[Rfam]
RNA: Archaeal signal recognition particle RNA
RNA sequence: UGGUCGGGUAGGGUGGGAGUCUCGCCACCUCCUAAACCCAAGGGCGUAAAGUGGGCACCAGCAACCCGUGCUCCGAGGUAGUCUUAGACUAGGCAGUUCCAUCCUGAACUAUGAUAGUCGCCCGAUGGGGCCAGAUAUUCGUGGACUACCUCUCUGGAGAGAGAGGCAGAACCACGUUAACUGGGGGAAACGGUCAGGUCCGGAAGGAAGCAGCCGUGCCCGGGUAUCGGCGUUCAUCGGUCUCCGGCUUGAGCAGGGAUGGGUAAAGGCUGCUAGUCUUUGGCUACACGGGGUAUGGGGGCCGACCU
Numbered sequence: 001u002g003g004u005c006g007g008g009u010a011g012g013g014u015g016g017g018a019g020u021c022u023c024g025c026c027a028c029c030u031c032c033u034a035a036a037c038c039c040a041a042g043g044g045c046g047u048a049a050a051g052u053g054g055g056c057a058c059c060a061g062c063a064a065c066c067c068g069u070g071c072u073c074c075g076a077g078g079u080a081g082u083c084u085u086a087g088a089c090u091a092g093g094c095a096g097u098u099c100c101a102u103c104c105u106g107a108a109c110u111a112u113g114a115u116a117g118u119c120g121c122c123c124g125a126u127g128g129g130g131c132c133a134g135a136u137a138u139u140c141g142u143g144g145a146c147u148a149c150c151u152c153u154c155u156g157g158a159g160a161g162a163g164a165g166g167c168a169g170a171a172c173c174a175c176g177u178u179a180a181c182u183g184g185g186g187g188a189a190a191c192g193g194u195c196a197g198g199u200c201c202g203g204a205a206g207g208a209a210g211c212a213g214c215c216g217u218g219c220c221c222g223g224g225u226a227u228c229g230g231c232g233u234u235c236a237u238c239g240g241u242c243u244c245c246g247g248c249u250u251g252a253g254c255a256g257g258g259a260u261g262g263g264u265a266a267a268g269g270c271u272g273c274u275a276g277u278c279u280u281u282g283g284c285u286a287c288a289c290g291g292g293g294u295a296u297g298g299g300g301g302c303c304g305a306c307c308u
Stems, first nucleotide, its partner, number of pairs: 002307006009300001012059004016032004037055004065299011077287001086279007093270002096264004102258005109251001116249005122240008130231003134228004140176005146169002149166007181223003185220002191216004199208003